[Rfam]
RNA sequence: UGUUACAGUUUUCCUCGGCAGUUAACUGCAACCGGAUUUCUAAAACUUCGGCAGUUAACUGCCGAGGGGACA
Dot-bracket structure: ...........((.(((((((((((((((.....................))))))))))))))).))....
MIR2629 microRNA precursor family: a 72-nucleotide RNA sequence from Medicago truncatula. The match comes from Rfam's covariance-model search (66 bits).